The record is a 102-nucleotide RNA from Pelosinus sp. UFO1, which matches "Purine riboswitch aptamer" in Rfam.
RNA sequence: AUGCGUUAAGUAAAUAUAUUUCGUAUAAUUUUGGAGAUAUGGUCCAAAAGUUUCUACUGGCAACCGUUAAAUUGCCUGUCUACGAGUGAAAGUGUACCUAAG
Numbered sequence: 001a002u003g004c005g006u007u008a009a010g011u012a013a014a015u016a017u018a019u020u021u022c023g024u025a026u027a028a029u030u031u032u033g034g035a036g037a038u039a040u041g042g043u044c045c046a047a048a049a050g051u052u053u054c055u056a057c058u059g060g061c062a063a064c065c066g067u068u069a070a071a072u073u074g075c076c077u078g079u080c081u082a083c084g085a086g087u088g089a090a091a092g093u094g095u096a097c098c099u100a101a102g
Base pairs, nucleotide, nucleotide: 020086021085022084023083024082025081029049030048031047032046033045034044035043057078059076060075061074062073063072
Dot-bracket structure: ...................((((((...(((((((.......))))))).......(.(((((........))))).)..))))))................
The organism belongs to Pelosinus, within Bacteria.
The family is grouped with related families in Rfam's "Purine riboswitches".